Rfam assigns this 89-nucleotide RNA from Ursus americanus to the family "mir-3085 microRNA precursor family".
The family's consensus secondary structure was predicted with RNAalifold.
RNA sequence: AGCCCUGCUCUGGGGAGGUGCCAUUCCGAGGGCCAAGAGUUUGAUUAUGUGUCACUCUGGCUGCUAUGGCCCCCUCCCAGGGUCUGGGU
Numbered sequence: 001a002g003c004c005c006u007g008c009u010c011u012g013g014g015g016a017g018g019u020g021c022c023a024u025u026c027c028g029a030g031g032g033c034c035a036a037g038a039g040u041u042u043g044a045u046u047a048u049g050u051g052u053c054a055c056u057c058u059g060g061c062u063g064c065u066a067u068g069g070c071c072c073c074c075u076c077c078c079a080g081g082g083u084c085u086g087g088g089u
Base pairs, nucleotide, nucleotide: 003088004087005086007084008082009081010080011079012078013077014076015075017073018072020070021069022068023067024066031062032061033060034059035058037057038056039055040054041051
It scores 95 bits against the family's covariance model.